[Rfam]
The record is a 98-nucleotide RNA from Ectobacillus ponti, which matches "Guanidine-I riboswitch aptamer" in Rfam. The pairing is the family consensus, mapped onto this sequence. The organism belongs to Ectobacillus, within Bacteria.
RNA sequence: CAUACAGUUUUCUAGGGUUCCGCAGCAGUGGCUGGCCUGGUCCGAGAGAAAACGCACAGGGUGCCUGUGUCACACGGAGGGACAAAAGCCCGGGAGGA
Numbered sequence: 001c002a003u004a005c006a007g008u009u010u011u012c013u014a015g016g017g018u019u020c021c022g023c024a025g026c027a028g029u030g031g032c033u034g035g036c037c038u039g040g041u042c043c044g045a046g047a048g049a050a051a052a053c054g055c056a057c058a059g060g061g062u063g064c065c066u067g068u069g070u071c072a073c074a075c076g077g078a079g080g081g082a083c084a085a086a087a088g089c090c091c092g093g094g095a096g097g098a
Base pairs, nucleotide, nucleotide: 007053008052009051010050011049012048015043016042020040021039022037023034024033025032026031054071055069056068057067058066059065060064073093075096079091080090081089